[Rfam]
RNA sequence: GUUGCUUCACGACUGGAUGGAUGGCCUGUUGUCAAUAGUUUGGCCAUCCUGUAGAGGGAAGCAUAGAUGAACCGGUGACACUGGCCAGCAUUAAACAACAUGACGCUCUAUCAAACUGCGUCUUGUUACCUGUCUUCUGGCACAUGG
Numbered sequence: 001g002u003u004g005c006u007u008c009a010c011g012a013c014u015g016g017a018u019g020g021a022u023g024g025c026c027u028g029u030u031g032u033c034a035a036u037a038g039u040u041u042g043g044c045c046a047u048c049c050u051g052u053a054g055a056g057g058g059a060a061g062c063a064u065a066g067a068u069g070a071a072c073c074g075g076u077g078a079c080a081c082u083g084g085c086c087a088g089c090a091u092u093a094a095a096c097a098a099c100a101u102g103a104c105g106c107u108c109u110a111u112c113a114a115a116c117u118g119c120g121u122c123u124u125g126u127u128a129c130c131u132g133u134c135u136u137c138u139g140g141c142a143c144a145u146g147g
Stems, first nucleotide, its partner, number of pairs: 003063006017052004022046005084141005090135001097127003102122004
The family of this 147-nucleotide sequence from Hordeum vulgare is "small nucleolar RNA snoR137". The base pairs follow the family's consensus structure, which was predicted with RNAalifold. It is annotated as an H/ACA-box small nucleolar RNA. The match comes from Rfam's covariance-model search (58 bits). Gene Ontology terms of the family: RNA processing and nucleolus.